[Rfam]
RNA: Bacterial RNase P class B
RNA sequence: GUUUUCGGAUAAUCGCGUGCAGGUGACUGCAUGAGGAAAGUCCAUGCUCGCACGGGCUGUGAUGCCCGUAGUGUUUGUGCUUGCUGAAACAAUAAGGCAAGGUAGCUGCGUCACAGCUAACGGCUGCAAUCAGGCUAAGUCUUAGGAUAUGCUGACAUUGCUGUAAAAGUGCCAAAGAGACGAGCCGACAAGGAAACCUGUCGGAGUGGAACGUGGUAAACCCCUCAAGCGAGCAACCCAAACUUAUGGUCGGGGCACUUGACUAGGCGAAACGAAGCCGUGGUCGAGGCGAUAUUUUAUCGCAGACAGAUGAUUAUCGAAGGCAGGGCCUGCAAAGACCCUGCUGGAACAAAACAUGGCUUAUAGAA
Numbered sequence: 001g002u003u004u005u006c007g008g009a010u011a012a013u014c015g016c017g018u019g020c021a022g023g024u025g026a027c028u029g030c031a032u033g034a035g036g037a038a039a040g041u042c043c044a045u046g047c048u049c050g051c052a053c054g055g056g057c058u059g060u061g062a063u064g065c066c067c068g069u070a071g072u073g074u075u076u077g078u079g080c081u082u083g084c085u086g087a088a089a090c091a092a093u094a095a096g097g098c099a100a101g102g103u104a105g106c107u108g109c110g111u112c113a114c115a116g117c118u119a120a121c122g123g124c125u126g127c128a129a130u131c132a133g134g135c136u137a138a139g140u141c142u143u144a145g146g147a148u149a150u151g152c153u154g155a156c157a158u159u160g161c162u163g164u165a166a167a168a169g170u171g172c173c174a175a176a177g178a179g180a181c182g183a184g185c186c187g188a189c190a191a192g193g194a195a196a197c198c199u200g201u202c203g204g205a206g207u208g209g210a211a212c213g214u215g216g217u218a219a220a221c222c223c224c225u226c227a228a229g230c231g232a233g234c235a236a237c238c239c240a241a242a243c244u245u246a247u248g249g250u251c252g253g254g255g256c257a258c259u260u261g262a263c264u265a266g267g268c269g270a271a272a273c274g275a276a277g278c279c280g281u282g283g284u285c286g287a288g289g290c291g292a293u294a295u296u297u298u299a300u301c302g303c304a305g306a307c308a309g310a311u312g313a314u315u316a317u318c319g320a321a322g323g324c325a326g327g328g329c330c331u332g333c334a335a336a337g338a339c340c341c342u343g344c345u346g347g348a349a350c351a352a353a354a355c356a357u358g359g360c361u362u363a364u365a366g367a368a
Base pairs, nucleotide, nucleotide: 004368005367006366007364008318009317010316011315012314013313014312016033017032018031019030020029021028038362039361040360042359043358044357045356046355047233048232049231050230051229052069053068054067055066056065057064075228076227077226079224080101081100082099083098084097085096102121103119104118105117106116107115108114122223123222124163126161127160133153134152135151139148140147141146169221170220171217172216173215185204186203187202188201189200190199192197237254238253239252258288259287260286261285262284263283264282289303290302291301292300293299294298322345323344324343325342326341327340328339